[Rfam]
RNA sequence: AUGCCUAUGAUGACUCAAUAGACCUGUACUGAAUGCGGAGAUGACCGCAACAAAUAACAUCUAAGGGGCUGAGGCAGU
Numbered sequence: 001a002u003g004c005c006u007a008u009g010a011u012g013a014c015u016c017a018a019u020a021g022a023c024c025u026g027u028a029c030u031g032a033a034u035g036c037g038g039a040g041a042u043g044a045c046c047g048c049a050a051c052a053a054a055u056a057a058c059a060u061c062u063a064a065g066g067g068g069c070u071g072a073g074g075c076a077g078u
Stems, first nucleotide, its partner, number of pairs: 002076004
RNA: Small nucleolar RNA SNORD25